[Rfam]
Rfam assigns this 96-nucleotide RNA from Austrofundulus limnaeus to the family "Vault RNA".
RNA sequence: GCACUGGUUUAGCUCAGUGGUUACUUCAACAAUUCUGUAGAAUCUGUUCCCUGCCCCUUACACGGGCUCGAACCACGGGCACUGUCCAGUGUUUUU
Number, nucleotide and partner (000 for none) at each position: 001g000002c091003a090004c089005u088006g087007g086008u000009u000010u000011a000012g080013c079014u078015c077016a000017g076018u075019g074020g073021u000022u000023a000024c000025u072026u071027c070028a000029a068030c000031a000032a000033u000034u000035c000036u000037g000038u000039a000040g000041a000042a000043u000044c000045u000046g000047u000048u000049c000050c000051c000052u000053g000054c000055c000056c000057c000058u000059u000060a000061c000062a000063c000064g000065g000066g000067c000068u029069c000070g027071a026072a025073c020074c019075a018076c017077g015078g014079g013080c012081a000082c000083u000084g000085u000086c007087c006088a005089g004090u003091g002092u000093u000094u000095u000096u000
On this family, see Stadler et al., Mol Biol Evol 2009: "Evolution of Vault RNAs". It is annotated as a non-coding RNA gene. This family of RNAs are found as part of the enigmatic vault ribonucleoprotein complex. The complex consists of a major vault protein (MVP), two minor vault proteins (VPARP and TEP1), and several small untranslated RNA molecules. It has been suggested that the vault complex is involved in drug resistance.